RNA sequence: UAAUCCUUUGAGCUGAGUCUUUGGAGCGGGGGAACCAAAUUUGAUAAACACUUUUGUUUAUCUUGGGGUGAAUCUUAACACACUAGUUAAGAAGGGAUGCUCUCAAUCCCUAAUCCGACAGCUAACCUCGUAAGCAUGUAUUGAGAGAAGGG
Numbered sequence: 001u002a003a004u005c006c007u008u009u010g011a012g013c014u015g016a017g018u019c020u021u022u023g024g025a026g027c028g029g030g031g032g033a034a035c036c037a038a039a040u041u042u043g044a045u046a047a048a049c050a051c052u053u054u055u056g057u058u059u060a061u062c063u064u065g066g067g068g069u070g071a072a073u074c075u076u077a078a079c080a081c082a083c084u085a086g087u088u089a090a091g092a093a094g095g096g097a098u099g100c101u102c103u104c105a106a107u108c109c110c111u112a113a114u115c116c117g118a119c120a121g122c123u124a125a126c127c128u129c130g131u132a133a134g135c136a137u138g139u140a141u142u143g144a145g146a147g148a149a150g151g152g
Stems, first nucleotide, its partner, number of pairs: 004025003026131006036065002066116003074091004094110004
Background:
A member of the RNA family "c-di-AMP riboswitch aptamer (ydaO/yuaA leader)" from Niallia endozanthoxylica, 152 nucleotides long. Its family is annotated with cyclic-di-AMP binding and regulation of gene expression in the Gene Ontology. The source organism's lineage runs through Bacteria, Bacillati, Bacillota, Bacillaceae and Niallia. Rfam's curators write: This family represents a conserved RNA structure found upstream of the ydaO and yuaA genes in Bacillus subtilis and related genes in other bacteria. The pairing is the family consensus, mapped onto this sequence.